A member of the RNA family "SAM riboswitch aptamer (S box leader)" from Clostridium pasteurianum, 111 nucleotides long. A search with the family's covariance model found it, with a score of 82 bits. The family's consensus secondary structure is taken from published work.
RNA sequence: AUCUCAUCAAGAGAAGCAGAAGGACUGGCCUGAUGAAGCUUCGGCAACCUUCAUAUGUAUUUUUUAGAAAGGUGCCAAAUCCUGCAGUUGAAUGGUAACGAUAGAUGAGGG
Number, nucleotide and partner (000 for none) at each position: 001a000002u110003c109004u108005c107006a106007u105008c104009a000010a000011g000012a000013g042014a041015a040016g039017c038018a000019g000020a000021a031022g030023g029024a000025c084026u000027g082028g081029c023030c022031u021032g000033a000034u000035g000036a000037a000038g017039c016040u015041u014042c013043g076044g075045c074046a073047a000048c072049c071050u068051u067052c000053a065054u000055a000056u000057g000058u000059a000060u000061u000062u000063u000064u000065u053066a000067g051068a050069a000070a000071g049072g048073u046074g045075c044076c043077a000078a000079a000080u103081c028082c027083u000084g025085c100086a000087g099088u098089u097090g096091a000092a000093u000094g000095g000096u090097a089098a088099c087100g085101a000102u000103a080104g008105a007106u006107g005108a004109g003110g002111g000